A member of the RNA family "ZMP/ZTP riboswitch aptamer (pfl RNA motif)" from Schaalia sp. 19OD2882, 86 nucleotides long.
RNA sequence: ACCCCCGGUCGUGACUGGCGCACAGGUGGGUGACCACCGGGGAGCGAUCCGACAGGCCGCGGGGGCCGCCCGCCUGGGUCCCCGAG
Numbered sequence: 001a002c003c004c005c006c007g008g009u010c011g012u013g014a015c016u017g018g019c020g021c022a023c024a025g026g027u028g029g030g031u032g033a034c035c036a037c038c039g040g041g042g043a044g045c046g047a048u049c050c051g052a053c054a055g056g057c058c059g060c061g062g063g064g065g066c067c068g069c070c071c072g073c074c075u076g077g078g079u080c081c082c083c084g085a086g
Stems, first nucleotide, its partner, number of pairs: 005051001007049006015041002017074004026037004063081005
Its family is annotated with one-carbon metabolic process and regulation of purine nucleotide biosynthetic process in the Gene Ontology. It scores 48 bits against the family's covariance model.